RNA sequence: AUGGUCCUACGGACACUCCAGUUCCUCCGCGCCGUCCGCAUCUGCUGACGAUUGCUCGCUACGUUUUUCGCG
Dot-bracket structure: .((.((....)).))...(.((.(....).)).)..........((((.((..............))))).)